[Rfam]
RNA: small Cajal body-specific RNA 18
RNA sequence: UAGUUGAUGAUGAUGAAACCACUAUGCAGUGUGAAUUCUGGGAACCAGGUGAUAGAGUGUGUUCUGAGAAGAAACUGAUGCAG
Numbered sequence: 001u002a003g004u005u006g007a008u009g010a011u012g013a014u015g016a017a018a019c020c021a022c023u024a025u026g027c028a029g030u031g032u033g034a035a036u037u038c039u040g041g042g043a044a045c046c047a048g049g050u051g052a053u054a055g056a057g058u059g060u061g062u063u064c065u066g067a068g069a070a071g072a073a074a075c076u077g078a079u080g081c082a083g
Stems, first nucleotide, its partner, number of pairs: 003081002038048004